[Rfam]
RNA sequence: UUGACAGCCCUGGAGACUGAAUCCCUGUGUUUAUCCACAGAGCAGACAGAGCGCGGGCAGUGGCAGCUUCCCCCACGCUGCCUCCUCCCUGUGCCUGGGCGCUGAGUCGGAGGAAGCACCUCUAAAGGUGAGCGGGGUCGUUCAGUCUCCACUGCCCAUUCAAUCCUCCCGCCAGC
Numbered sequence: 001u002u003g004a005c006a007g008c009c010c011u012g013g014a015g016a017c018u019g020a021a022u023c024c025c026u027g028u029g030u031u032u033a034u035c036c037a038c039a040g041a042g043c044a045g046a047c048a049g050a051g052c053g054c055g056g057g058c059a060g061u062g063g064c065a066g067c068u069u070c071c072c073c074c075a076c077g078c079u080g081c082c083u084c085c086u087c088c089c090u091g092u093g094c095c096u097g098g099g100c101g102c103u104g105a106g107u108c109g110g111a112g113g114a115a116g117c118a119c120c121u122c123u124a125a126a127g128g129u130g131a132g133c134g135g136g137g138u139c140g141u142u143c144a145g146u147c148u149c150c151a152c153u154g155c156c157c158a159u160u161c162a163a164u165c166c167u168c169c170c171g172c173c174a175g176c
Stems, first nucleotide, its partner, number of pairs: 002162003007155002011151011024137003030132006038104003042100001048096001051094006062082005107125001109123005

Source information
Shown here is a 176-nucleotide sequence, a member of the family "TUC338". The family's RNA type in Rfam is cis-regulatory element. The base pairs follow the family's consensus structure, which was predicted with WAR. A reference for the family is Braconi et al. (2011), "Expression and functional role of a transcribed noncoding RNA with an ultraconserved element in hepatocellular carcinoma", Proc Natl Acad Sci U S A.